[Rfam]
RNA sequence: UUGUUUACGUGAUGAGAGAUUUUUUCAUAUUUAUACAGUUAUCCCUGUCUUAAUACAUUAUGUCGAGAAUAUUAUUCUGAAAAUAA
Numbered sequence: 001u002u003g004u005u006u007a008c009g010u011g012a013u014g015a016g017a018g019a020u021u022u023u024u025u026c027a028u029a030u031u032u033a034u035a036c037a038g039u040u041a042u043c044c045c046u047g048u049c050u051u052a053a054u055a056c057a058u059u060a061u062g063u064c065g066a067g068a069a070u071a072u073u074a075u076u077c078u079g080a081a082a083a084u085a086a
Base pairs, nucleotide, nucleotide: 001086002085003084004083005082006081
This 86-nucleotide RNA sequence from Debaryomyces hansenii belongs to the Rfam family "Small nucleolar RNA R38". On this family, see Qu et al., Nucleic Acids Res 2001: "Identification of 10 novel snoRNA gene clusters from Arabidopsis thaliana". From the family's description: snoR38 is a C/D box small nucleolar RNA conserved across yeast, human, Arabidopsis and rice. It is encoded in the intron of elongation factor-1 gamma in both pombe and cerevisiae. snoR38 guides the methylation of 2'-O-ribose sites in 28S rRNA. By type it is a C/D-box small nucleolar RNA. The family has 19 seed sequences and 2,295 matches in Rfam 15.1. It is one of the family's seed sequences.